Description
A member of the RNA family "Clostridiales-1 RNA" from Sarcina sp. DSM 11001, 181 nucleotides long. The source organism's lineage runs through Bacteria, Bacillota, Clostridia, Clostridiaceae and Sarcina. By type it is a small RNA. The match comes from Rfam's covariance-model search (88 bits).

[Rfam]
RNA sequence: UGAAAACAGCGAGCCAAGCGGCUGCAAAUGCCAUGCUCGCAUGAGCAUUUGCAGACAUUUGGCGAGCGUACAAACAUGAGGAAGGAGCCGUUUUGCACCCGGAACGGGUGCAAAACGAGCGGAUUCCGAAUGUUUGGAGCGGGCUGGGAGCGUGUAAGCGCGACAGCACGCGUAGUUUUCA
Numbered sequence: 001u002g003a004a005a006a007c008a009g010c011g012a013g014c015c016a017a018g019c020g021g022c023u024g025c026a027a028a029u030g031c032c033a034u035g036c037u038c039g040c041a042u043g044a045g046c047a048u049u050u051g052c053a054g055a056c057a058u059u060u061g062g063c064g065a066g067c068g069u070a071c072a073a074a075c076a077u078g079a080g081g082a083a084g085g086a087g088c089c090g091u092u093u094u095g096c097a098c099c100c101g102g103a104a105c106g107g108g109u110g111c112a113a114a115a116c117g118a119g120c121g122g123a124u125u126c127c128g129a130a131u132g133u134u135u136g137g138a139g140c141g142g143g144c145u146g147g148g149a150g151c152g153u154g155u156a157a158g159c160g161c162g163a164c165a166g167c168a169c170g171c172g173u174a175g176u177u178u179u180c181a
Stems, first nucleotide, its partner, number of pairs: 001181007010066001013063001016060003020056001022054009032043004071136007080127004087120002089117013139171003143167003150161004